About this RNA
mir-34 microRNA precursor family: a 73-nucleotide sequence from Xenopus laevis. Clan: mir-34 clan. For this family Rfam cites "Numerous microRNPs in neuronal cells containing novel microRNAs" (Dostie et al., RNA, 2003). A search with the family's covariance model found it, with a score of 67 bits. The family has 113 seed sequences and 2,256 matches in Rfam 15.1. Rfam describes the family as follows. Human mir-34a was discovered computationally and later experimentally verified. The mature sequence is excised from the 5' arm of the hairpin. The source organism's lineage runs through Eukaryota, Sarcopterygii, Dipnotetrapodomorpha, Pipoidea and Xenopus. Gene Ontology terms of the family: RISC complex and miRNA-mediated post-transcriptional gene silencing.

RNA sequence: GGUUUUCAGGCAGUGUAGUUAGCUGAUUGUGUUAUAUCAAAUGUGCAAUCACUAACUAAACUGCCAUCAAAAC
Number, nucleotide and partner (000 for none) at each position: 001g000002g000003u071004u070005u069006u000007c000008a000009g065010g064011c000012a062013g061014u060015g000016u058017a057018g056019u055020u054021a053022g052023c000024u051025g050026a049027u048028u047029g046030u045031g044032u000033u000034a000035u000036a000037u000038c000039a000040a000041a000042u000043g000044u031045g030046c029047a028048a027049u026050c025051a024052c022053u021054a020055a019056c018057u017058a016059a000060a014061c013062u012063g000064c010065c009066a000067u000068c000069a005070a004071a003072a000073c000